Rfam assigns this 102-nucleotide RNA from Brochothrix thermosphacta to the family "Purine riboswitch aptamer". Clan: Purine riboswitches. The organism belongs to Brochothrix, within Bacteria.
RNA sequence: UAUCAACCAGAUAAAAACACUUAUAUAAUAGUCAUAAUAUGGAUGACGCGUUUCUACCCAACUGCCGUAAAUAGUUGGACUAUGAGUGAGAUUUUAGCCAAG
Numbered sequence: 001u002a003u004c005a006a007c008c009a010g011a012u013a014a015a016a017a018c019a020c021u022u023a024u025a026u027a028a029u030a031g032u033c034a035u036a037a038u039a040u041g042g043a044u045g046a047c048g049c050g051u052u053u054c055u056a057c058c059c060a061a062c063u064g065c066c067g068u069a070a071a072u073a074g075u076u077g078g079a080c081u082a083u084g085a086g087u088g089a090g091a092u093u094u095u096a097g098c099c100a101a102g
Stems, first nucleotide, its partner, number of pairs: 018088008031047005058078007